Purine riboswitch aptamer: a 97-nucleotide sequence from Hespellia stercorisuis.
Taxonomically the source falls in Hespellia stercorisuis (Bacteria, Bacillati, Bacillota, Lachnospiraceae).
Pairs were carried over by alignment from the consensus structure, which is taken from published work.
RNA sequence: AAAAAUAAUAAUGAAUACAUCUGUAUAGGUUCACAAAACGGGUGAACGUUUCUACCAGCUACCAUUUUAGUUGACUAUGGAUGCCAGGCAAAGUGAA
Numbered sequence: 001a002a003a004a005a006u007a008a009u010a011a012u013g014a015a016u017a018c019a020u021c022u023g024u025a026u027a028g029g030u031u032c033a034c035a036a037a038a039c040g041g042g043u044g045a046a047c048g049u050u051u052c053u054a055c056c057a058g059c060u061a062c063c064a065u066u067u068u069a070g071u072u073g074a075c076u077a078u079g080g081a082u083g084c085c086a087g088g089c090a091a092a093g094u095g096a097a
Base pairs, nucleotide, nucleotide: 018083019082020081021080022079023078024077025076029047030046031045032044033043034042056073057072058071059070060069061068